[Rfam]
A member of the RNA family "RgsA sRNA" from Pseudomonas sp. HPB0071, 187 nucleotides long. A reference for the family is Park et al. (2013), "Analysis of the small RNA P16/RgsA in the plant pathogen Pseudomonas syringae pv. tomato strain DC3000", Microbiology.

RNA sequence: CAAUGAAAGGUUGCCUAUUCCAAAUCUGUUUAAAAAAUGAUCAAUCCCGACUGGAUGUUCCCCAUGGCUGAUCAAUACUUCUACUUACCGGCAGCGCCACUCCCCCGAGGCGUUAUCGGUGGGAUACAUCGCUAUUGGUGCAUCCCGUUAAACUCCUAAUGGUCUUGGCCCGGUUAGCAAAAACCGG
Number, nucleotide and partner (000 for none) at each position: 001c000002a000003a000004u000005g000006a000007a000008a000009g000010g000011u000012u000013g000014c000015c000016u000017a000018u000019u000020c000021c000022a000023a000024a000025u000026c000027u000028g000029u000030u000031u000032a000033a000034a000035a000036a000037a000038u000039g164040a163041u162042c161043a160044a000045u000046c000047c000048c000049g000050a000051c000052u000053g000054g000055a000056u000057g000058u000059u000060c000061c000062c000063c000064a000065u000066g000067g000068c000069u000070g000071a000072u000073c000074a000075a000076u000077a000078c000079u000080u000081c000082u000083a000084c000085u000086u000087a120088c119089c118090g117091g000092c000093a114094g000095c112096g000097c110098c109099a000100c000101u000102c000103c000104c000105c000106c000107g000108a000109g098110g097111c000112g095113u000114u093115a000116u000117c090118g089119g088120u087121g146122g145123g144124a143125u142126a000127c140128a139129u137130c000131g000132c000133u000134a000135u000136u000137g129138g000139u128140g127141c000142a125143u124144c123145c122146c121147g000148u000149u000150a000151a000152a000153c000154u000155c000156c000157u000158a000159a000160u043161g042162g041163u040164c039165u000166u000167g000168g000169c000170c187171c186172g185173g184174u000175u182176a000177g000178c000179a000180a000181a000182a175183a000184c173185c172186g171187g170

The source organism's lineage runs through Bacteria, Pseudomonadati, Pseudomonadota, Pseudomonadales and Pseudomonas. Rfam links the family to the GO terms response to hydrogen peroxide, sRNA-mediated gene silencing and response to oxidative stress. Rfam's curators write: This small RNA (sRNA) was computationally identified in the genome of the opportunistic pathogen Pseudomonas aeruginosa and its expression verified by northern blot analysis. P16 sRNA appears to be conserved across several Pseudomonas species and Azotobacter vinelandii. In these species it is consistently located downstream of a predicted TatD deoxyribonuclease gene. P16 has a predicted Rho independent terminator at the 3' end but the function of P16 is unknown. It has been shown that this sRNA is transcribed from an RpoS-dependent promoter under positive, probably indirect GacA control in two Pseudomonas species. It was renamed RgsA (for regulation by GacA and stress).RpoS mRNA expression is repressed by RgsA during the exponential phase. The Hfq RNA chaperone is required for the repression. It is annotated as a small RNA.